[Rfam]
c-di-AMP riboswitch aptamer (ydaO/yuaA leader): a 131-nucleotide sequence from Iningainema tapete.
RNA sequence: AACAUAACUAUGUUCAAGCAUGCUGGGAACGGAGGAACCAUAUAUGGGGCGUAUCUCUAAUAUCUAUUAGAGAAGGACAUCUCUCAGUCCUAGCCCGUCAGCUAACUUCGUCGGCAUUGAGGGGAGACUGA
Numbered sequence: 001a002a003c004a005u006a007a008c009u010a011u012g013u014u015c016a017a018g019c020a021u022g023c024u025g026g027g028a029a030c031g032g033a034g035g036a037a038c039c040a041u042a043u044a045u046g047g048g049g050c051g052u053a054u055c056u057c058u059a060a061u062a063u064c065u066a067u068u069a070g071a072g073a074a075g076g077a078c079a080u081c082u083c084u085c086a087g088u089c090c091u092a093g094c095c096c097g098u099c100a101g102c103u104a105a106c107u108u109c110g111u112c113g114g115c116a117u118u119g120a121g122g123g124g125a126g127a128c129u130g131a
Base pairs, nucleotide, nucleotide: 008114009113013028014027015026029111030110031109032108033107034106039046040045047096048095049094055072056071057070058069075090076089077088078087
Dot-bracket structure: .......((...(((..........)))((((((....((....))(((.....((((..........))))..((((........))))...))).........)))))).)).................
NCBI's taxonomy places the organism under Bacteria, Bacillati, Cyanophyceae, Iningainema, Iningainema tapete. About the family: This family represents a conserved RNA structure found upstream of the ydaO and yuaA genes in Bacillus subtilis and related genes in other bacteria.